Overview:
The family of this 152-nucleotide sequence from Mycoplasma sp. CAG:611 is "glmS glucosamine-6-phosphate activated ribozyme aptamer". Pairs were carried over by alignment from the consensus structure, which is taken from published work. The family's RNA type in Rfam is riboswitch. Its family is annotated with regulation of gene expression and catalytic activity in the Gene Ontology.

[Rfam]
RNA sequence: UAUUUAUAAUUAGCGCCUGGACUUUAAAAGUUGACGAGGAUUUGUAAUUAUCGAAAUAUUCGGCGGAUGUUACAACGGAUUUUUGUGUUAAACGUUAAAUAUAUUUAAAAAAUAAAAUAAAUAUUAUAACAAAAAAUAUAUUAAACACAUAA
Numbered sequence: 001u002a003u004u005u006a007u008a009a010u011u012a013g014c015g016c017c018u019g020g021a022c023u024u025u026a027a028a029a030g031u032u033g034a035c036g037a038g039g040a041u042u043u044g045u046a047a048u049u050a051u052c053g054a055a056a057u058a059u060u061c062g063g064c065g066g067a068u069g070u071u072a073c074a075a076c077g078g079a080u081u082u083u084u085g086u087g088u089u090a091a092a093c094g095u096u097a098a099a100u101a102u103a104u105u106u107a108a109a110a111a112a113u114a115a116a117a118u119a120a121a122u123a124u125u126a127u128a129a130c131a132a133a134a135a136a137u138a139u140a141u142u143a144a145a146c147a148c149a150u151a152a
Base pairs, nucleotide, nucleotide: 020032021031022030023029024028042075043074044073045072046071051063052062053061054060076094077093080090098142099141100140101139102138103137104136112127113126114125115124117122